[Rfam]
RNA sequence: UCUCUGGUGUAGGGAGAUCACCUCAGGCGUACAGUCUUGUCAUGUAGCAUGUAGCCAGACCUGAUCUCCCUGCAGCGGCUG
Numbered sequence: 001u002c003u004c005u006g007g008u009g010u011a012g013g014g015a016g017a018u019c020a021c022c023u024c025a026g027g028c029g030u031a032c033a034g035u036c037u038u039g040u041c042a043u044g045u046a047g048c049a050u051g052u053a054g055c056c057a058g059a060c061c062u063g064a065u066c067u068c069c070c071u072g073c074a075g076c077g078g079c080u081g
Base pairs, nucleotide, nucleotide: 004078005077006076008074009073010072011071012070013069014068015067016066017065018064019063020062023059024058026056027055028054030053031052032051033050038049039048040047
This 81-nucleotide RNA sequence from Branchiostoma floridae belongs to the Rfam family "mir-4864 microRNA precursor family".
Its family is annotated with miRNA-mediated post-transcriptional gene silencing and RISC complex in the Gene Ontology.
The base pairs follow the family's consensus structure, which was predicted with RNAalifold.